[Rfam]
RNA sequence: GGCUUUCUUCGCGGCCGAGCUCGACCGGCCAUCCCAGCGCUGAUCGACUACAUCGACCAGCACCGCCAGGAGUUCGGAGUCGAGCCGAUCUGCCGCGCCCUCACCGAGGCCGGCACCAAGAUCGCUCCG
Number, nucleotide and partner (000 for none) at each position: 001g000002g000003c000004u000005u000006u000007c000008u000009u000010c000011g000012c000013g000014g029015c028016c027017g025018a000019g000020c000021u000022c000023g000024a000025c017026c000027g016028g015029c014030c000031a000032u000033c000034c000035c000036a000037g000038c000039g000040c000041u000042g000043a000044u000045c000046g000047a000048c000049u000050a000051c000052a000053u000054c000055g000056a000057c000058c000059a000060g000061c000062a000063c000064c000065g000066c000067c000068a000069g000070g000071a000072g000073u000074u000075c129076g128077g127078a126079g125080u000081c000082g000083a000084g000085c000086c124087g123088a000089u121090c120091u119092g000093c000094c000095g000096c000097g000098c000099c000100c000101u000102c000103a000104c000105c000106g000107a000108g000109g000110c000111c000112g000113g000114c000115a000116c000117c000118a000119a091120g090121a089122u000123c087124g086125c079126u078127c077128c076129g075